[Rfam]
RNA sequence: AUCUCAGGUAGGAUCAUCUUUAUCAUUUCUCCUUUUGUAUGGCAGAUCAGAACAUGAUGAUUGGAGUUUGCAUGAAUCGUGAUUAGUGUCUCUGUGUAAUCAGAAUUUGCAACACCCUGAUUGCUCCUGACUCUUAA
Number, nucleotide and partner (000 for none) at each position: 001a000002u000003c000004u000005c000006a000007g000008g000009u000010a000011g000012g000013a000014u000015c000016a000017u000018c000019u000020u000021u000022a000023u000024c045025a000026u000027u042028u041029c000030u039031c000032c037033u000034u000035u000036u000037g032038u000039a030040u000041g028042g027043c000044a000045g024046a000047u000048c000049a000050g000051a000052a000053c000054a000055u000056g000057a000058u000059g000060a000061u000062u000063g000064g000065a000066g000067u000068u000069u000070g000071c000072a000073u000074g092075a091076a000077u000078c088079g087080u085081g000082a000083u000084u000085a080086g000087u079088g078089u000090c000091u075092c074093u000094g000095u000096g124097u123098a122099a121100u120101c119102a118103g117104a000105a000106u000107u000108u000109g000110c000111a000112a000113c000114a000115c000116c000117c103118u102119g101120a100121u099122u098123g097124c096125u000126c000127c000128u000129g000130a000131c000132u000133c000134u000135u000136a000137a000
Shown here is a 137-nucleotide sequence from Molossus molossus, a member of the family "U8 small nucleolar RNA". The match comes from Rfam's covariance-model search (91 bits). It is annotated as a C/D-box small nucleolar RNA. For this family Rfam cites "The U8 snoRNA gene family: identification and characterization of distinct, functional U8 genes in Xenopus" (Peculis et al., Gene, 2001). NCBI's taxonomy places the organism under Eukaryota, Boreoeutheria, Laurasiatheria, Chiroptera, Molossus.